[Rfam]
RNA sequence: GGGGGUGUACAGGUUUCGACGGGGAUAGGAAGCUGAUGGUUGCAUGCCGAGGUCCGGGCUGGCCUCGUUAAAAAGCCCGGGGCGAAUUACACGCCGAUAAUUACGACUACGCUGUAGCAGCUUAAUAACCUGCUACCGAUCCGCUGAGCCUCUCCCACGGGUGAAGAUGGAUCGUCAUUUUAGUGGGAUAGUUGCGGGGAGGGUCCACGGCCCCAAGGCGAAACCUUAGUGGAAUCGCUUCCCGGAAAUCCCUGCCAGGGGAGAGUCGGGCGGCUAAAUCAAAUCCUGGUAUAAGCAUGUAGACGCCUUCGGUGUAUGAUCUUCGGACGCGGGUUCGACUCCCGCCACCUCCACCA
Dot-bracket structure: (((((((............(((((((.(...((((..(((..((((([[[[[(((((((...]]]]].......)))))))..............................(.(((((((.........))))))).)..[[[.[.............((((((.].]]]....))))))........(.(((..(.....[[[.[.......)..))).)..........].]]]..((.((.((..(((.[[[[.[[)))...)).)).))..........]]..]]]]...))))).....)))..))))...).)))))))...(((((.......))))))))))))....
Numbered sequence: 001g002g003g004g005g006u007g008u009a010c011a012g013g014u015u016u017c018g019a020c021g022g023g024g025a026u027a028g029g030a031a032g033c034u035g036a037u038g039g040u041u042g043c044a045u046g047c048c049g050a051g052g053u054c055c056g057g058g059c060u061g062g063c064c065u066c067g068u069u070a071a072a073a074a075g076c077c078c079g080g081g082g083c084g085a086a087u088u089a090c091a092c093g094c095c096g097a098u099a100a101u102u103a104c105g106a107c108u109a110c111g112c113u114g115u116a117g118c119a120g121c122u123u124a125a126u127a128a129c130c131u132g133c134u135a136c137c138g139a140u141c142c143g144c145u146g147a148g149c150c151u152c153u154c155c156c157a158c159g160g161g162u163g164a165a166g167a168u169g170g171a172u173c174g175u176c177a178u179u180u181u182a183g184u185g186g187g188a189u190a191g192u193u194g195c196g197g198g199g200a201g202g203g204u205c206c207a208c209g210g211c212c213c214c215a216a217g218g219c220g221a222a223a224c225c226u227u228a229g230u231g232g233a234a235u236c237g238c239u240u241c242c243c244g245g246a247a248a249u250c251c252c253u254g255c256c257a258g259g260g261g262a263g264a265g266u267c268g269g270g271c272g273g274c275u276a277a278a279u280c281a282a283a284u285c286c287u288g289g290u291a292u293a294a295g296c297a298u299g300u301a302g303a304c305g306c307c308u309u310c311g312g313u314g315u316a317u318g319a320u321c322u323u324c325g326g327a328c329g330c331g332g333g334u335u336c337g338a339c340u341c342c343c344g345c346c347a348c349c350u351c352c353a354c355c356a
Stems, first nucleotide, its partner, number of pairs: 001352007020325007028317001032313004038307003043299005048067005053081007112138001114136007141170003145166001159180006189221001191219003196214001202236003206232001239273002242270002245267002249262003253291004258285002329345005